[Rfam]
RNA sequence: GUCCUGCCGGGCCCCUCUGACGGUUCACUCGAACCGUGAUGUCGGACUGGACG
Numbered sequence: 001g002u003c004c005u006g007c008c009g010g011g012c013c014c015c016u017c018u019g020a021c022g023g024u025u026c027a028c029u030c031g032a033a034c035c036g037u038g039a040u041g042u043c044g045g046a047c048u049g050g051a052c053g
Base pairs, nucleotide, nucleotide: 006047007045008044009043010042020037021036022035023034024033025032026031
Record summary:
terC RNA: a 53-nucleotide RNA from Rhodopseudomonas palustris. The source organism's lineage runs through Bacteria, Pseudomonadati, Hyphomicrobiales, Nitrobacteraceae and Rhodopseudomonas palustris.